[Rfam]
RNA: RprA RNA
Organism: Candidatus Symbiopectobacterium sp. PLON1
RNA sequence: ACGCUUUUUGUAAGGACAACGCGAGUUUGCCAAUGAGGUUUCCUCCUCGUCAGAGCUAGUAACGAAUUGCUGUGUGUAGUCUUUGCCCAUCCCCUAAGGUGGGCAUUUUUUUGU
Numbered sequence: 001a002c003g004c005u006u007u008u009u010g011u012a013a014g015g016a017c018a019a020c021g022c023g024a025g026u027u028u029g030c031c032a033a034u035g036a037g038g039u040u041u042c043c044u045c046c047u048c049g050u051c052a053g054a055g056c057u058a059g060u061a062a063c064g065a066a067u068u069g070c071u072g073u074g075u076g077u078a079g080u081c082u083u084u085g086c087c088c089a090u091c092c093c094c095u096a097a098g099g100u101g102g103g104c105a106u107u108u109u110u111u112u113g114u
Stems, first nucleotide, its partner, number of pairs: 002023003035051002038048001068076003085104007